The family of this 108-nucleotide sequence from Hymenobacter sp. NBH84 is "SAM riboswitch aptamer (S box leader)". The family's consensus secondary structure is taken from published work. The family is grouped with related families in Rfam's "SAM clan". Rfam describes the family as follows. The SAM riboswitch is found upstream of a number of genes which code for proteins involved in methionine or cysteine biosynthesis in Gram-positive bacteria. A search with the family's covariance model found it, with a score of 80 bits.
RNA sequence: CACUUAUCAAGAAAGGCGGAGGGACAGGCCCUGCGAUGCCUUAGCAACCGGUAGUCAUAGCUACAAGGUGCUACAUCCUGAAUCUGCGACAGCAGAUGAAGAUAAGUU
Numbered sequence: 001c002a003c004u005u006a007u008c009a010a011g012a013a014a015g016g017c018g019g020a021g022g023g024a025c026a027g028g029c030c031c032u033g034c035g036a037u038g039c040c041u042u043a044g045c046a047a048c049c050g051g052u053a054g055u056c057a058u059a060g061c062u063a064c065a066a067g068g069u070g071c072u073a074c075a076u077c078c079u080g081a082a083u084c085u086g087c088g089a090c091a092g093c094a095g096a097u098g099a100a101g102a103u104a105a106g107u108u
Stems, first nucleotide, its partner, number of pairs: 002107007013042005021031003025080004043072004048068002051064004076100001081097001083096004